The record is a 67-nucleotide RNA sequence from Sporosarcina sp. JAI121, which matches "Bacillaceae-1 RNA" in Rfam.
RNA sequence: AUUCAAGGAAGGCAGUCUAAGUUCGCGACGUCCUGUCGCAACGACUGCAUGACCUACAUUCUGUAGG
Dot-bracket structure: ...........((((((.......(((((.....)))))...))))))....(((((.....)))))

The base pairs follow the family's consensus structure, which is taken from published work. Taxonomically the source falls in Sporosarcina (Bacteria, Bacillati, Bacillota, Bacilli). The family has 95 seed sequences and 5,721 matches in Rfam 15.1.